A member of the RNA family "TPP riboswitch aptamer (THI element)" from bacterium 1xD8-6, 98 nucleotides long.
[Rfam]
RNA sequence: UAAUAGUAUCUGGGGAGCUGACUGGCUGAGAGGGAUAAGAUCCGACCCAUUACCUGAUGCGGAUAAUGCCGCCGUAGGAAGUAUAGGAAUAGGAAAUG
Numbered sequence: 001u002a003a004u005a006g007u008a009u010c011u012g013g014g015g016a017g018c019u020g021a022c023u024g025g026c027u028g029a030g031a032g033g034g035a036u037a038a039g040a041u042c043c044g045a046c047c048c049a050u051u052a053c054c055u056g057a058u059g060c061g062g063a064u065a066a067u068g069c070c071g072c073c074g075u076a077g078g079a080a081g082u083a084u085a086g087g088a089a090u091a092g093g094a095a096a097u098g
Base pairs, nucleotide, nucleotide: 007085008084009083011049012048013047014046017026018025019024033043034042035041036040053078054077055076056075059072060071061070062069
Dot-bracket structure: ......(((.((((..(((....)))......((((...))))..))))...((((..((((......))))..))))....))).............
It scores 60 bits against the family's covariance model.